[Rfam]
RNA sequence: CUGCGGGGAUGAUCACGCUGAACUCUCUCUUGCUGAUGGGUCAGUGGAGAAGCUUUGACAUGUUCUGAGUGGC
Numbered sequence: 001c002u003g004c005g006g007g008g009a010u011g012a013u014c015a016c017g018c019u020g021a022a023c024u025c026u027c028u029c030u031u032g033c034u035g036a037u038g039g040g041u042c043a044g045u046g047g048a049g050a051a052g053c054u055u056u057g058a059c060a061u062g063u064u065c066u067g068a069g070u071g072g073c
Base pairs, nucleotide, nucleotide: 001072002071003070004069

A member of the RNA family "Small nucleolar RNA SNORD26" from Phainopepla nitens, 73 nucleotides long. The match comes from Rfam's covariance-model search (67 bits). It is annotated as a C/D-box small nucleolar RNA. The family's consensus secondary structure was predicted with PFOLD. For this family Rfam cites "A mammalian gene with introns instead of exons generating stable RNA products" (Tycowski et al., Nature, 1996). The family has 17 seed sequences and 451 matches in Rfam 15.1.